[Rfam]
RNA sequence: GACAGAGUAAAUAAUAUGCGUAAAGUGUCAAAGGAUGGAACGUUGUAUUUGAACGAAGAGCAAAUGCUUGCGACAUAUUAUUGCGUUCGCUGUU
Number, nucleotide and partner (000 for none) at each position: 001g094002a093003c092004a091005g090006a000007g000008u000009a000010a082011a081012u080013a079014a078015u077016a076017u075018g074019c072020g071021u070022a000023a000024a000025g054026u053027g000028u052029c051030a050031a049032a048033g000034g046035a000036u000037g000038g088039a087040a086041c085042g084043u000044u000045g000046u034047a000048u032049u031050u030051g029052a028053a026054c025055g000056a000057a000058g069059a068060g067061c066062a000063a000064a000065u000066g061067c060068u059069u058070g021071c020072g019073a000074c018075a017076u016077a015078u014079u013080a012081u011082u010083g000084c042085g041086u040087u039088c038089g000090c005091u004092g003093u002094u001

The family of this 94-nucleotide sequence from Alkaliphilus metalliredigens is "THF (Tetrahydrofolate) riboswitch aptamer". Rfam's curators put it in the seed alignment. NCBI's taxonomy places the organism under Bacteria, Bacillota, Clostridia, Alkaliphilus, Alkaliphilus metalliredigens.